[Rfam]
RNA: U1 spliceosomal RNA
RNA sequence: AUACUCACCUGACAGGGGAGAUGCCAUGAUCACAAAGGUGGUUUUCCCAGGGCAAGUCUUAUACACUGCACUCCCAAUGUGCUGAGCCCUGUGAUUUCCCCAAAUGUGGGAAACUCGACUGUAUAAUUUGGAGGUGGGGUGGAGGUGGGAAUGAGUUCCUGCUUUCU
Dot-bracket structure: ...........((((((((((.(((((..........)))))))))))((((...(.(.(((..............))).).)...)))).((((((.((.......)).))).))).))))..................((((.(.((((....)))).)))))..